A member of the RNA family "TPP riboswitch aptamer (THI element)" from Pseudonocardia sp. MH-G8, 114 nucleotides long. Pairs were carried over by alignment from the consensus structure, which is taken from published work. Rfam's curators write: Vitamin B(1) in its active form thiamin pyrophosphate (TPP) is an essential coenzyme that is synthesised by coupling of pyrimidine and thiazole moieties in bacteria. Rfam links the family to the GO term thiamine pyrophosphate binding. A search with the family's covariance model found it, with a score of 60 bits. Lineage of the source: Bacteria > Bacillati > Actinomycetota > Actinomycetes > Pseudonocardia.

RNA sequence: GACCCGACCCACGGGAGCUCCGCGUUCCGGAGCUGAGAGGGCGGCAGGACCGGCCGCCGACCGUUCGCACCUGACCCGGUUAGUACCGGCGUAGGGAGGAACUCGGUGGCACCC
Numbered sequence: 001g002a003c004c005c006g007a008c009c010c011a012c013g014g015g016a017g018c019u020c021c022g023c024g025u026u027c028c029g030g031a032g033c034u035g036a037g038a039g040g041g042c043g044g045c046a047g048g049a050c051c052g053g054c055c056g057c058c059g060a061c062c063g064u065u066c067g068c069a070c071c072u073g074a075c076c077c078g079g080u081u082a083g084u085a086c087c088g089g090c091g092u093a094g095g096g097a098g099g100a101a102c103u104c105g106g107u108g109g110c111a112c113c114c
Stems, first nucleotide, its partner, number of pairs: 006102001009099002011064004017033005040058005070095004076089004